6S / SsrS RNA: a 192-nucleotide RNA sequence from Paenibacillus sp. 7541. From the family's description: E. coli 6S RNA was the first non coding RNA to be sequenced, but its function was unknown until recently. It consists of 184 nucleotides that fold into an extended hairpin structure with a large single-stranded internal bulge. The 6S RNA specifically associates with RNA polymerase holoenzyme containing the sigma70 specificity factor. This interaction represses expression from a sigma70-dependent promoter during stationary phase. 6S RNA homologs have recently been identified in most bacterial genomes. Many Gram-positive species have two copies of 6S RNA. In Bacillus subtilis, both copies appear to interact with RNA polymerase holoenzyme containing the housekeeping sigma factor and be expressed during different stages of growth. In many proteobacteria, 6S RNA may be processed from a transcript encoding homologs of the E. coli YgfA protein which is a putative 5-formyltetrahydrofolate cycloligase activity.
RNA sequence: UACAUCCUGCGAUGUUCGUUUCGGUUUUCCGUUGUUUUGAACCAAUGACGAUGUCUAGGGAGACUCAUAUUGAAUCGUGGCUGAACAGCCCUGUCACUCAAGACAAGGGGAAUUCAUAAGCGUUUCUGCGGUCACCCACCUGCUAUAGCAGGUUCGAAGACAAUGAUACCGGACGGCAUAGGCGGGUUUCGU
Numbered sequence: 001u002a003c004a005u006c007c008u009g010c011g012a013u014g015u016u017c018g019u020u021u022c023g024g025u026u027u028u029c030c031g032u033u034g035u036u037u038u039g040a041a042c043c044a045a046u047g048a049c050g051a052u053g054u055c056u057a058g059g060g061a062g063a064c065u066c067a068u069a070u071u072g073a074a075u076c077g078u079g080g081c082u083g084a085a086c087a088g089c090c091c092u093g094u095c096a097c098u099c100a101a102g103a104c105a106a107g108g109g110g111a112a113u114u115c116a117u118a119a120g121c122g123u124u125u126c127u128g129c130g131g132u133c134a135c136c137c138a139c140c141u142g143c144u145a146u147a148g149c150a151g152g153u154u155c156g157a158a159g160a161c162a163a164u165g166a167u168a169c170c171g172g173a174c175g176g177c178a179u180a181g182g183c184g185g186g187u188u189u190c191g192u
Stems, first nucleotide, its partner, number of pairs: 004188001006186005012179004017175003033162003036158001038156006058137003062133004069127001072126003076122003084114002089110004